[Rfam]
RNA sequence: AAAGGAGCAAUACCAACACUCUUGCUAGAACAAGAAAGUGGUUAUUGCUCCUUUAUUU
Numbered sequence: 001a002a003a004g005g006a007g008c009a010a011u012a013c014c015a016a017c018a019c020u021c022u023u024g025c026u027a028g029a030a031c032a033a034g035a036a037a038g039u040g041g042u043u044a045u046u047g048c049u050c051c052u053u054u055a056u057u058u
Stems, first nucleotide, its partner, number of pairs: 001054012014041001020035005
Dot-bracket structure: ((((((((((((.(.....(((((......))))).....).))))))))))))....

Shown here is a 58-nucleotide sequence from Gossypium schwendimanii, a member of the family "Plastid-psbA-3 3UTR RNA". Rfam's curators write: Plastid psbA-3 is a non-coding RNA (ncRNA) present in plastids. It was identified in inverted repeat sequences in the 3 prime untranslate region (3UTR) of photosystem II quinone-binding protein (psbA). The family is grouped with related families in Rfam's "Plastid-psbA 3UTR RNA clan". Rfam classes the family as a cis-regulatory element. Taxonomically the source falls in Gossypium (Eukaryota, Streptophytina, Embryophyta, Gunneridae).